[Rfam]
RNA sequence: AUUAAAUUAAACGGGUGCUUCUCUUUGCUUUUAACUUGUAUUCAAUUUUUGACUUGUUUAAAGUAAAGAUGGAAGCUGAGAAAAUACCGUUUAACUCGAUCAAGCUAGUACUUGCGUGAGGAUUGAUUAAUAUUGUUGA
Numbered sequence: 001a002u003u004a005a006a007u008u009a010a011a012c013g014g015g016u017g018c019u020u021c022u023c024u025u026u027g028c029u030u031u032u033a034a035c036u037u038g039u040a041u042u043c044a045a046u047u048u049u050u051g052a053c054u055u056g057u058u059u060a061a062a063g064u065a066a067a068g069a070u071g072g073a074a075g076c077u078g079a080g081a082a083a084a085u086a087c088c089g090u091u092u093a094a095c096u097c098g099a100u101c102a103a104g105c106u107a108g109u110a111c112u113u114g115c116g117u118g119a120g121g122a123u124u125g126a127u128u129a130a131u132a133u134u135g136u137u138g139a
Stems, first nucleotide, its partner, number of pairs: 006127005011090004016084001017076005095120004101114004
RNA: TPP riboswitch aptamer (THI element)